[Rfam]
RNA sequence: CUGACGGCCGCGUUCGGGUCAAUUGCGCACUGCAACACCCGAUCUCCCUCCUCCUCCCUGACGGGAUGGAGGCGAGCGAAGGAGAGCGCGUCGCCAUCAG
Numbered sequence: 001c002u003g004a005c006g007g008c009c010g011c012g013u014u015c016g017g018g019u020c021a022a023u024u025g026c027g028c029a030c031u032g033c034a035a036c037a038c039c040c041g042a043u044c045u046c047c048c049u050c051c052u053c054c055u056c057c058c059u060g061a062c063g064g065g066a067u068g069g070a071g072g073c074g075a076g077c078g079a080a081g082g083a084g085a086g087c088g089c090g091u092c093g094c095c096a097u098c099a100g
Base pairs, nucleotide, nucleotide: 001100002099003098004097009090010089011088012087013086015041016040017039018038023035024034025033026032027031043085044084045083046082047081050074
RNA: L4-Archaeoglobi ribosomal protein leades
Organism: Haloplanus salinarum